Rfam assigns this 563-nucleotide part of an RNA from Desulfofundulus salinus to the family "Bacterial large subunit ribosomal RNA". It scores 2907 bits against the family's covariance model.
[Rfam]
RNA sequence: UAGGAAGGGCAUACGGUGGAUGCCUUGGCGCUUUGGGCCGAAGAAGGACGUGGCAAGCUGCGAAAAGCCACGGGGAGCCGCAAGCAGGCGUAGAUCCGUGGAUAUCCGAAUGGGGCAACCCGGCGGGGGAGAACCCCCGUCAUCCUGUACUGAAUCCAUAGGUACAGGAGGGGCACCCGGGGAACUGAAACAUCUUAGUACCCGGAGGAAAAGAAAGCAAAAGCGAUCCCCGUAGUAGCGGCGAGCGAAGAGGGGACAGCCUAAACCGCGAAGUGGGAACACUUUGCGGGGUUGCGGGACUCCCGUGAAAGUACUGCGGAACUUAGCCGAAGGGGGCUGGAAAGCCCCGCCGCAGAAGGUAAAAGCCCUGUAGGCGAAAAGGGAAGCAGUGCAGGGAGGAUCCCAAGUACCGCGGGGCACGUGGAAUCCUGCGGGAAUCAGGGAGGACCACCUUCCAAGGCUAAAUACCCAAAGCGACCGAUAGUGGACGAGUACCGUGAGGGAAAGGUGAAAAGCACCCCGGGAGGGGAGUGAAAGAGAACCUGAAACCGUAUGCCUACAAG
Number, nucleotide and partner (000 for none) at each position: 001u000002a000003g000004g000005a000006a000007g558008g557009g556010c555011a554012u553013a552014c551015g550016g549017u000018g000019g000020a000021u000022g543023c508024c507025u000026u000027g479028g478029c476030g475031c474032u473033u472034u471035g470036g469037g468038c172039c171040g000041a000042a000043g000044a000045a000046g107047g106048a105049c062050g061051u060052g000053g000054c000055a000056a000057g000058c000059u000060g051061c050062g049063a000064a000065a000066a000067g000068c101069c100070a099071c098072g097073g096074g095075g000076a000077g089078c088079c087080g000081c000082a000083a000084g000085c000086a000087g079088g078089c077090g000091u000092a000093g000094a000095u074096c073097c072098g071099u070100g069101g068102a000103u000104a000105u048106c047107c046108g000109a000110a000111u000112g121113g120114g119115g000116c000117a000118a000119c114120c113121c112122g141123g140124c139125g138126g137127g136128g135129g000130a000131g000132a000133a000134c000135c128136c127137c126138c125139g124140u123141c122142a000143u169144c168145c167146u166147g165148u164149a163150c162151u161152g000153a000154a000155u000156c000157c000158a000159u000160a000161g151162g150163u149164a148165c147166a146167g145168g144169a143170g000171g039172g038173g000174c000175a000176c207177c205178c204179g203180g202181g201182g000183a000184a000185c000186u000187g194188a193189a000190a000191c000192a000193u188194c187195u000196u000197a000198g000199u000200a000201c181202c180203c179204g178205g177206a000207g176208g000209a000210a000211a000212a000213g000214a000215a000216a000217g224218c223219a000220a000221a000222a000223g218224c217225g000226a000227u465228c255229c254230c253231c252232g000233u000234a000235g000236u000237a000238g246239c245240g000241g000242c000243g000244a000245g239246c238247g000248a000249a000250g000251a000252g231253g230254g229255g228256a000257c000258a462259g461260c460261c459262u000263a000264a000265a000266c289267c288268g287269c286270g285271a284272a283273g000274u000275g000276g000277g000278a000279a000280c000281a000282c000283u272284u271285u270286g269287c268288g267289g266290g000291g000292u000293u000294g000295c000296g404297g403298g402299a000300c398301u397302c396303c395304c394305g000306u000307g000308a000309a000310a000311g000312u391313a390314c389315u388316g387317c386318g000319g000320a000321a000322c381323u380324u379325a000326g375327c374328c373329g000330a000331a000332g348333g000334g347335g346336g345337c344338u000339g000340g000341a000342a000343a000344g337345c336346c335347c334348c332349g000350c000351c355352g000353c000354a000355g351356a000357a369358g368359g367360u000361a000362a000363a000364a000365g000366c000367c359368c358369u357370g000371u000372a000373g328374g327375c326376g000377a000378a000379a324380a323381g322382g000383g000384a000385a000386g317387c316388a315389g314390u313391g312392c000393a000394g304395g303396g302397a301398g300399g000400a000401u000402c298403c297404c296405a000406a000407g000408u000409a000410c434411c433412g432413c431414g430415g429416g428417g427418c000419a000420c000421g000422u000423g000424g000425a000426a000427u417428c416429c415430u414431g413432c412433g411434g410435g000436a000437a000438u000439c000440a000441g456442g455443g454444a453445g452446g000447a000448c000449c000450a000451c000452c445453u444454u443455c442456c441457a000458a000459g261460g260461c259462u258463a000464a000465a227466u000467a000468c037469c036470c035471a034472a033473a032474g031475c030476g029477a000478c028479c027480g000481a000482u000483a000484g000485u000486g000487g000488a000489c000490g000491a000492g000493u000494a000495c502496c501497g000498u000499g000500a000501g496502g495503g000504a000505a000506a000507g024508g023509u000510g000511a000512a000513a000514a000515g000516c000517a000518c529519c528520c527521c526522g000523g000524g000525a000526g521527g520528g519529g518530a000531g000532u000533g000534a000535a000536a000537g000538a000539g000540a000541a000542c000543c022544u000545g000546a000547a000548a000549c016550c015551g014552u013553a012554u011555g010556c009557c008558u007559a000560c000561a000562a000563g000
Lineage of the source: Bacteria > Bacillati > Bacillota > Peptococcaceae > Desulfofundulus.